[Rfam]
RNA sequence: CGCGGCACUGCAGGAGAGCGGGCCGCUUGAAGCGGCUCCACCGAAGGCGCAAACUCCCAUAAACGCUCAGGUCGGCUCACGCGAUGAGCCU
Numbered sequence: 001c002g003c004g005g006c007a008c009u010g011c012a013g014g015a016g017a018g019c020g021g022g023c024c025g026c027u028u029g030a031a032g033c034g035g036c037u038c039c040a041c042c043g044a045a046g047g048c049g050c051a052a053a054c055u056c057c058c059a060u061a062a063a064c065g066c067u068c069a070g071g072u073c074g075g076c077u078c079a080c081g082c083g084a085u086g087a088g089c090c091u
Base pairs, nucleotide, nucleotide: 006086007085009083010082011081013080020038021037022036023035040072041071042070043068044067047066048065049064053060
Source information
Rfam assigns this 91-nucleotide RNA sequence from Variovorax sp. MHTC-1 to the family "Glycine riboswitch aptamer". From the family's description: This family represents the bacterial glycine riboswitch. The base pairs follow the family's consensus structure.